The family of this 55-nucleotide sequence from Solanum tuberosum is "MIR8008 microRNA precursor family". The match comes from Rfam's covariance-model search (71 bits). The family has 2 seed sequences and 240 matches in Rfam 15.1. Taxonomically the source falls in Solanum (Eukaryota, Euphyllophyta, Mesangiospermae, Solanaceae). Its family is annotated with miRNA-mediated post-transcriptional gene silencing and RISC complex in the Gene Ontology.
RNA sequence: AAACCCAAAAAAGCUACGGACAGGGUCCUUUAGUCCAUCGCUUUUUUGGGUUUUU
Numbered sequence: 001a002a003a004c005c006c007a008a009a010a011a012a013g014c015u016a017c018g019g020a021c022a023g024g025g026u027c028c029u030u031u032a033g034u035c036c037a038u039c040g041c042u043u044u045u046u047u048g049g050g051u052u053u054u055u
Stems, first nucleotide, its partner, number of pairs: 001053014016038001018036004